RNA sequence: ACCGUCCUUGUCUGGGGGAGCAUUAUGUUCAAUGAUUGUCUAGAGAGAACAUAGCUGCUGACACCCAUUAUUAAAUUAGCGCAUCCAAUCUUGUGAUUCGGGUGCAAUUUUUGGAAGC
Numbered sequence: 001a002c003c004g005u006c007c008u009u010g011u012c013u014g015g016g017g018g019a020g021c022a023u024u025a026u027g028u029u030c031a032a033u034g035a036u037u038g039u040c041u042a043g044a045g046a047g048a049a050c051a052u053a054g055c056u057g058c059u060g061a062c063a064c065c066c067a068u069u070a071u072u073a074a075a076u077u078a079g080c081g082c083a084u085c086c087a088a089u090c091u092u093g094u095g096a097u098u099c100g101g102g103u104g105c106a107a108u109u110u111u112u113g114g115a116a117g118c
Stems, first nucleotide, its partner, number of pairs: 005019005020058003024053007036044002081105006088097003
U4atac minor spliceosomal RNA: a 118-nucleotide RNA from Frankliniella occidentalis. The family's RNA type in Rfam is spliceosomal small nuclear RNA.